[Rfam]
RNA sequence: UCCAGAAAAGCCAAACCCGUUGCGAAGCGGGGACGGAAAGCCACGGAUCUUCCGCCAGGAAGACAGCCGGGUUGCCGAAG
Numbered sequence: 001u002c003c004a005g006a007a008a009a010g011c012c013a014a015a016c017c018c019g020u021u022g023c024g025a026a027g028c029g030g031g032g033a034c035g036g037a038a039a040g041c042c043a044c045g046g047a048u049c050u051u052c053c054g055c056c057a058g059g060a061a062g063a064c065a066g067c068c069g070g071g072u073u074g075c076c077g078a079a080g
Stems, first nucleotide, its partner, number of pairs: 001080001003077001011036002016031006034066001039073004044069003048063002
A member of the RNA family "c-di-GMP-I-GGC riboswitch aptamer" from Geobacter pickeringii, 80 nucleotides long. It scores 66 bits against the family's covariance model. The family is grouped with related families in Rfam's "c-di-GMP_I riboswitch clan". Pairs were carried over by alignment from the consensus structure, which is taken from published work. Lineage of the source: Bacteria > Pseudomonadati > Thermodesulfobacteriota > Desulfuromonadia > Geobacter.